About this RNA:
Rfam assigns this 74-nucleotide RNA sequence from Alligator mississippiensis to the family "Mammalian CPEB3 ribozyme". It scores 56 bits against the family's covariance model. The base pairs follow the family's consensus structure, which is taken from published work. The organism belongs to Alligator, within Eukaryota.
Nucleotides: 074
Base pairs, nucleotide, nucleotide: 013040014039015038019073020072021071022070023069024068025037026036027035046063047062048061049060050059051058052057
Number, partner (000 for none) and nucleotide at each position: 001000u002000g003000a004000g005000g006000g007000u008000u009000u010000g011000a012000g013040g014039c015038c016000a017000c018000a019073g020072u021071a022070g023069a024068a025037g026036u027035g028000c029000u030000c031000a032000u033000g034000g035027c036026a037025u038015g039014g040013c041000u042000g043000u044000g045000u046063c047062a048061g049060a050059u051058u052057c053000c054000a055000a056000u057052g058051a059050a060049u061048c062047u063046g064000u065000g066000a067000a068024u069023u070022c071021u072020g073019c074000c